[Rfam]
RNA sequence: CGGUUGGGAGGGCUGCUUCGGCGGUCCGUUGGGUUCACCCACUCGGCUG
Number, nucleotide and partner (000 for none) at each position: 001c049002g048003g047004u046005u045006g044007g043008g042009a000010g027011g026012g025013c024014u023015g022016c021017u000018u000019c000020g000021g016022c015023g014024g013025u012026c011027c010028g000029u000030u041031g040032g039033g038034u000035u000036c000037a000038c033039c032040c031041a030042c008043u007044c006045g005046g004047c003048u002049g001
The record is a 49-nucleotide RNA, which matches "DUF3800-VI RNA" in Rfam.
By type it is a cis-regulatory element.